Annotation
A member of the RNA family "PhrS" from Oleiphilus sp. HI0066, 211 nucleotides long. The source organism's lineage runs through Bacteria, Gammaproteobacteria, Oceanospirillales, Oleiphilaceae and Oleiphilus. The match comes from Rfam's covariance-model search (40 bits).
RNA sequence: CUCCUUUGAUAGCCUGAAUGUACUAACUAAGGAGACAGAAAUAUGUAUAUAGAUGAAACAAUCAUUGCGGGCGUAAUUGUCGUUCUUGGAACUAUCGGGUUUCUAGGUGGUUUUGCAGCAUUUGUUUACAAAGAUGCGCACAAGAAAAAAUCUGUUUAGUUGUCAGAAUUAAGCAAGAAAUGGAACGUCAAGGUUUUGGCAUUCUAUUUCG
Number, nucleotide and partner (000 for none) at each position: 001c000002u000003c000004c000005u000006u000007u000008g000009a000010u109011a108012g000013c106014c000015u000016g000017a000018a000019u000020g000021u000022a000023c000024u000025a000026a000027c000028u000029a000030a000031g000032g000033a000034g000035a000036c000037a000038g000039a000040a000041a000042u000043a000044u000045g000046u000047a000048u000049a000050u000051a000052g000053a000054u000055g000056a000057a000058a000059c067060a066061a000062u000063c000064a000065u000066u060067g059068c000069g000070g000071g000072c000073g000074u000075a000076a000077u000078u000079g000080u000081c000082g000083u000084u000085c000086u000087u094088g093089g000090a000091a000092c000093u088094a087095u000096c000097g000098g000099g000100u000101u000102u000103c000104u000105a000106g013107g000108u011109g010110g000111u000112u000113u000114u000115g000116c000117a000118g000119c000120a000121u000122u000123u000124g000125u000126u000127u000128a000129c000130a000131a000132a000133g000134a000135u000136g000137c000138g000139c000140a000141c000142a000143a000144g000145a000146a000147a000148a000149a000150a000151u000152c000153u000154g000155u000156u000157u000158a000159g000160u000161u000162g000163u000164c000165a000166g000167a000168a000169u179170u178171a000172a000173g000174c000175a000176a000177g000178a170179a169180a000181u000182g000183g000184a000185a202186c000187g200188u199189c198190a197191a196192g000193g000194u000195u000196u191197u190198g189199g188200c187201a000202u185203u000204c000205u000206a000207u000208u000209u000210c000211g000